Shown here is a 178-nucleotide RNA from [Phormidium ambiguum] IAM M-71, a member of the family "Antisense RNA which regulates isiA expression".

RNA sequence: GAUAACCGUAGAUUACAAAUGGAUCGAGUGUCGGUUCGGUGACGAUGCGAACAGUUUGACUUGCUGCAUCAUAAAGUCCGCCCCAGUACAUCGCUUUAGCAACUAGCAAUAAAGCGCCAACUCCCAAAAAUAAGAGAUGAUGCCCCAAAAUUAUUCCUAAUUGUUUGGGAUCGUUCCA
Numbered sequence: 001g002a003u004a005a006c007c008g009u010a011g012a013u014u015a016c017a018a019a020u021g022g023a024u025c026g027a028g029u030g031u032c033g034g035u036u037c038g039g040u041g042a043c044g045a046u047g048c049g050a051a052c053a054g055u056u057u058g059a060c061u062u063g064c065u066g067c068a069u070c071a072u073a074a075a076g077u078c079c080g081c082c083c084c085a086g087u088a089c090a091u092c093g094c095u096u097u098a099g100c101a102a103c104u105a106g107c108a109a110u111a112a113a114g115c116g117c118c119a120a121c122u123c124c125c126a127a128a129a130a131u132a133a134g135a136g137a138u139g140a141u142g143c144c145c146c147a148a149a150a151u152u153a154u155u156c157c158u159a160a161u162u163g164u165u166u167g168g169g170a171u172c173g174u175u176c177c178a
Stems, first nucleotide, its partner, number of pairs: 136175006144169005
For this family Rfam cites "An internal antisense RNA regulates expression of the photosynthesis gene isiA" (Duhring et al., Proc Natl Acad Sci U S A, 2006).